[Rfam]
RNA sequence: CUCAAGGAAGUGCUUUGUCAACGUGGACAGAAAACGCGUUCUUGAGGGUGCGCUUUGUGUCUACGUGGACAAAGCGCUUCCUUGAAU
Numbered sequence: 001c002u003c004a005a006g007g008a009a010g011u012g013c014u015u016u017g018u019c020a021a022c023g024u025g026g027a028c029a030g031a032a033a034a035c036g037c038g039u040u041c042u043u044g045a046g047g048g049u050g051c052g053c054u055u056u057g058u059g060u061c062u063a064c065g066u067g068g069a070c071a072a073a074g075c076g077c078u079u080c081c082u083u084g085a086a087u
Stems, first nucleotide, its partner, number of pairs: 002085018021066001023064007031056003035052004040047002
RNA: MIR7486 microRNA precursor family
Organism: Gossypium lobatum